[Rfam]
RNA: THF (Tetrahydrofolate) riboswitch aptamer
RNA sequence: CGCAGAGUAGAGAUCCGAGCGGUAAGUGUCCUCGAACGGGGAGUUGACGAGGAACGAAGCUGAGAGCCUCAGCGCGGUUCGGAUCCCGCAUCCCGCUGCG
Numbered sequence: 001c002g003c004a005g006a007g008u009a010g011a012g013a014u015c016c017g018a019g020c021g022g023u024a025a026g027u028g029u030c031c032u033c034g035a036a037c038g039g040g041g042a043g044u045u046g047a048c049g050a051g052g053a054a055c056g057a058a059g060c061u062g063a064g065a066g067c068c069u070c071a072g073c074g075c076g077g078u079u080c081g082g083a084u085c086c087c088g089c090a091u092c093c094c095g096c097u098g099c100g
Base pairs, nucleotide, nucleotide: 001100002099003098004097005096010087012085013084014083015082016081017080018079019078020076021075026055027054029053030052031051032050033049034048039093040092041091043089059073060072061071062070